Giardia RNase MRP: a 189-nucleotide RNA from Giardia duodenalis. It is annotated as a ribozyme. The literature on the family includes a 2011 paper in BMC Genomics, by Chen et al., "Characterization of RNase MRP RNA and novel snoRNAs from Giardia intestinalis and Trichomonas vaginalis". Gene Ontology terms of the family: rRNA processing, ribonuclease MRP activity and ribonuclease MRP complex.
RNA sequence: AGCGCUGUAAGGCAACCUUAGAAGUGCGUCUUCUGGGAAAUUCCCUGGGCGUCGGGCAGAAAGUGCCGGUCCUCUGGAUUCCGGGGAGUGUCUGGUGCCGAUCGGACACUCCCUAGCCGCCACACUGACAGUUAUGGUUGCAGGACAAGCUUAGCGAGUCCGAACUCGACAGGGAUACUCUACAGCGUU
Numbered sequence: 001a002g003c004g005c006u007g008u009a010a011g012g013c014a015a016c017c018u019u020a021g022a023a024g025u026g027c028g029u030c031u032u033c034u035g036g037g038a039a040a041u042u043c044c045c046u047g048g049g050c051g052u053c054g055g056g057c058a059g060a061a062a063g064u065g066c067c068g069g070u071c072c073u074c075u076g077g078a079u080u081c082c083g084g085g086g087a088g089u090g091u092c093u094g095g096u097g098c099c100g101a102u103c104g105g106a107c108a109c110u111c112c113c114u115a116g117c118c119g120c121c122a123c124a125c126u127g128a129c130a131g132u133u134a135u136g137g138u139u140g141c142a143g144g145a146c147a148a149g150c151u152u153a154g155c156g157a158g159u160c161c162g163a164a165c166u167c168g169a170c171a172g173g174g175a176u177a178c179u180c181u182a183c184a185g186c187g188u189u
Stems, first nucleotide, its partner, number of pairs: 001189007012141006020034005042175006055067004068080005083114014143161004149155002